Rfam assigns this 320-nucleotide RNA from Seonamhaeicola sp. S2-3 to the family "Bacterial RNase P class A". A reference for the family is Beauregard et al. (2013), "Identification and characterization of small RNAs in Yersinia pestis", RNA Biol. Rfam classes the family as a ribozyme.
RNA sequence: AAAGUAGAUUGCCUUAUCGCUGCUAUUUUUAUAGUAGAGGAAAGUCCGAACACCGUAGCGCAAUAUAGUGGUUAACGGCCACCAGUUGUAAAACUAGGAAAAGUGCAACAGAAAGUAUGUACAGGUAAUGCUGUAGUGAAAUCAGGUAAACUCUAUAUGGUGCAAUGUCAUGUAUACCAACGUUUAAGGGUUGCGCGCCCAAUGUUGGAGGGUAGACAGCUAAAGUGUAUUGGUAACAAUGCACUCAGAUAAAUGAUAAGGGCUUUUUUAGUGUAUUUACUAAAAAAGUACAGAAUUCGGCUUACAGAUUUACUUUUAAA
Number, nucleotide and partner (000 for none) at each position: 001a316002a315003a314004g313005u312006a311007g310008a309009u308010u307011g305012c261013c260014u259015u258016a257017u256018c255019g000020c037021u036022g035023c034024u033025a032026u031027u000028u000029u000030u000031a026032u025033a024034g023035u022036a021037g020038a000039g000040g000041a000042a303043a302044g301045u000046c300047c299048g298049a297050a296051c162052a161053c160054c159055g000056u000057a000058g196059c195060g194061c193062a000063a158064u157065a156066u155067a154068g082069u081070g080071g079072u078073u000074a000075a000076c000077g000078g072079c071080c070081a069082c068083c097084a095085g094086u093087u092088g000089u000090a000091a000092a087093a086094c085095u084096a000097g083098g153099a152100a000101a000102a000103g151104u150105g147106c146107a000108a000109c000110a000111g000112a000113a000114a000115g000116u000117a000118u000119g000120u135121a134122c133123a132124g131125g000126u000127a000128a000129u000130g000131c124132u123133g122134u121135a120136g000137u000138g000139a000140a000141a000142u000143c000144a000145g000146g106147u105148a000149a000150a104151c103152u099153c098154u067155a066156u065157a064158u063159g054160g053161u052162g051163c000164a000165a000166u218167g217168u216169c215170a000171u000172g000173u000174a000175u000176a000177c208178c207179a206180a205181c204182g000183u000184u000185u000186a000187a000188g200189g199190g198191u197192u000193g061194c060195g059196c058197g191198c190199c189200c188201a000202a000203u000204g181205u180206u179207g178208g177209a000210g000211g000212g000213u000214a000215g169216a168217c167218a166219g000220c000221u000222a000223a000224a000225g244226u243227g242228u241229a240230u239231u238232g237233g000234u000235a000236a000237c232238a231239a230240u229241g228242c227243a226244c225245u000246c000247a000248g000249a000250u000251a000252a000253a000254u000255g018256a017257u016258a015259a014260g013261g012262g000263c000264u000265u000266u000267u000268u000269u000270a000271g000272u000273g000274u000275a000276u000277u000278u000279a000280c000281u000282a000283a000284a000285a000286a000287a000288g000289u000290a000291c000292a000293g000294a000295a000296u050297u049298c048299g047300g046301c044302u043303u042304a000305c011306a000307g010308a009309u008310u007311u006312a005313c004314u003315u002316u001317u000318a000319a000320a000